Notes: FMN riboswitch aptamer (RFN element): a 132-nucleotide RNA from Georgenia muralis.
RNA sequence: GCACGUGCUCCGGGGUCGGUGAAAUUCCGAGCCGGCGGUGACAGUCCGCGACCCGACCACCUCCUGGUGGGCGGUUGACCUGGUGGAACUCCGGGACCGACGGUGAGAGUCCGGAUGGGAGGCAGCACGUGA
Numbered sequence: 001g002c003a004c005g006u007g008c009u010c011c012g013g014g015g016u017c018g019g020u021g022a023a024a025u026u027c028c029g030a031g032c033c034g035g036c037g038g039u040g041a042c043a044g045u046c047c048g049c050g051a052c053c054c055g056a057c058c059a060c061c062u063c064c065u066g067g068u069g070g071g072c073g074g075u076u077g078a079c080c081u082g083g084u085g086g087a088a089c090u091c092c093g094g095g096a097c098c099g100a101c102g103g104u105g106a107g108a109g110u111c112c113g114g115a116u117g118g119g120a121g122g123c124a125g126c127a128c129g130u131g132a
Stems, first nucleotide, its partner, number of pairs: 003130007010121001017029003031110002033099002035049004044097002053074002079095005101113003
Record summary
The family's consensus secondary structure is taken from published work.